RNA sequence: AAGCCUUGGGCAAGUCCUAUACAGCCAGCUCCCUUUGAACUCCGUCAGGGCGGGAACGCAGCAGCGGUAAUCUGGUCGUAGCGGCGUGAUAUAGGUCGCUUGCCCAUUU
Number, nucleotide and partner (000 for none) at each position: 001a000002a000003g000004c000005c000006u000007u000008g105009g104010g103011c102012a101013a100014g099015u098016c000017c094018u093019a092020u091021a090022c088023a087024g085025c084026c000027a000028g000029c000030u000031c000032c000033c000034u000035u000036u000037g000038a000039a000040c000041u000042c000043c000044g000045u000046c000047a000048g000049g000050g000051c000052g000053g000054g000055a000056a000057c000058g000059c000060a000061g000062c000063a000064g000065c000066g000067g000068u000069a000070a000071u000072c000073u000074g000075g000076u000077c000078g000079u000080a000081g000082c000083g000084g025085c024086g000087u023088g022089a000090u021091a020092u019093a018094g017095g000096u000097c000098g015099c014100u013101u012102g011103c010104c009105c008106a000107u000108u000109u000

Bacteroidales small SRP: a 109-nucleotide RNA from Gracilimonas sediminicola. It scores 94 bits against the family's covariance model. The family's RNA type in Rfam is non-coding RNA gene.